[Rfam]
RNA sequence: GAGCCGGCGUAGCUCAGUGGUUACUUCGAACAACAAUUCUUUCAAAAUUCUGCUCUCUCUCCCUCCCCGGGAUCGAACCACGGGCGCUGUCCAGCGUUUUC
Dot-bracket structure: ..((.((....((((.((((....(((((...........................................))))))))))))).....)).))......
Record summary:
The family of this 101-nucleotide sequence from Cottoperca gobio is "Vault RNA". By type it is a non-coding RNA gene. Lineage of the source: Eukaryota > Neoteleostei > Ctenosquamata > Eupercaria > Cottoperca. A search with the family's covariance model found it, with a score of 62 bits.